[Rfam]
RNA sequence: ACCGGCACGGAUGCCGGUGUUUCCAGCCUUGAGAGUUUUAGACGCAAGUCUAAAACUCUAAGAUGAAAAAUGUACAUGGAAGUACAUUUUUCAUCGGCA
Numbered sequence: 001a002c003c004g005g006c007a008c009g010g011a012u013g014c015c016g017g018u019g020u021u022u023c024c025a026g027c028c029u030u031g032a033g034a035g036u037u038u039u040a041g042a043c044g045c046a047a048g049u050c051u052a053a054a055a056c057u058c059u060a061a062g063a064u065g066a067a068a069a070a071u072g073u074a075c076a077u078g079g080a081a082g083u084a085c086a087u088u089u090u091u092c093a094u095c096g097g098c099a
Base pairs, nucleotide, nucleotide: 001018002017003016004015005014006013032059033058034057035056036055037054038053039052040051041050042049062095063094064093065092066091067090068089069088070087071086072085073084074083075082
A member of the RNA family "TD-2 RNA" from Treponema denticola, 99 nucleotides long. On this family, see Weinberg et al., Nucleic Acids Res 2007: "Identification of 22 candidate structured RNAs in bacteria using the CMfinder comparative genomics pipeline". By type it is a small RNA.